[Rfam]
RNA sequence: GACUCCUUUACGCCGAAUCGCGGCCGGGCGCCGCGUACGGGGGACUUCGAGCACAUCGGGGUGAAUCGGCGUUUGCCGUAGGGCACCUUCUGUCCGAACCCGCAACUAACCUCGGAGGCAAUUUAUGAAGGAAGG
Numbered sequence: 001g002a003c004u005c006c007u008u009u010a011c012g013c014c015g016a017a018u019c020g021c022g023g024c025c026g027g028g029c030g031c032c033g034c035g036u037a038c039g040g041g042g043g044a045c046u047u048c049g050a051g052c053a054c055a056u057c058g059g060g061g062u063g064a065a066u067c068g069g070c071g072u073u074u075g076c077c078g079u080a081g082g083g084c085a086c087c088u089u090c091u092g093u094c095c096g097a098a099c100c101c102g103c104a105a106c107u108a109a110c111c112u113c114g115g116a117g118g119c120a121a122u123u124u125a126u127g128a129a130g131g132a133a134g135g
Stems, first nucleotide, its partner, number of pairs: 012119003019035005038114005048058002059101003067078004081095004